[Rfam]
The record is a 72-nucleotide RNA from Anaeromicropila herbilytica, which matches "Group II catalytic intron D1-D4-1" in Rfam. The match comes from Rfam's covariance-model search (63 bits). On this family, see Bonen and Vogel, Trends Genet 2001: "The ins and outs of group II introns". NCBI's taxonomy places the organism under Bacteria, Bacillati, Bacillota, Lachnospirales, Anaeromicropila.
RNA sequence: UAACUAUUAUCGCAAGGUAAUACUGAACAUGCAGAAGUCAGCAGAGGUCAUAUUAGCCGAGAGGCGAAGGAC
Number, nucleotide and partner (000 for none) at each position: 001u025002a024003a000004c000005u022006a021007u020008u019009a018010u017011c016012g000013c000014a000015a000016g011017g010018u009019a008020a007021u006022a005023c000024u002025g001026a000027a000028c000029a000030u000031g000032c000033a000034g000035a000036a000037g000038u045039c044040a000041g000042c000043a000044g039045a038046g000047g072048u071049c070050a000051u000052a000053u000054u000055a000056g065057c064058c063059g000060a000061g000062a000063g058064g057065c056066g000067a000068a000069g000070g049071a048072c047